This 83-nucleotide RNA sequence from Rhamnella rubrinervis belongs to the Rfam family "Small nucleolar RNA Z122". Gene Ontology terms of the family: RNA processing and nucleolus. The family's RNA type in Rfam is C/D-box small nucleolar RNA. The source organism's lineage runs through Eukaryota, Magnoliopsida, eudicotyledons, rosids and Rhamnella. The match comes from Rfam's covariance-model search (56 bits).
RNA sequence: UUUGGGACAUGAUGCGACUAAAUAAAUUAUCAGAUGCGUCAGCAAUGCUGAAUUGUUCAUUUGCACGUCAGUCUGAUCCCAAC
Numbered sequence: 001u002u003u004g005g006g007a008c009a010u011g012a013u014g015c016g017a018c019u020a021a022a023u024a025a026a027u028u029a030u031c032a033g034a035u036g037c038g039u040c041a042g043c044a045a046u047g048c049u050g051a052a053u054u055g056u057u058c059a060u061u062u063g064c065a066c067g068u069c070a071g072u073c074u075g076a077u078c079c080c081a082a083c
Stems, first nucleotide, its partner, number of pairs: 002082006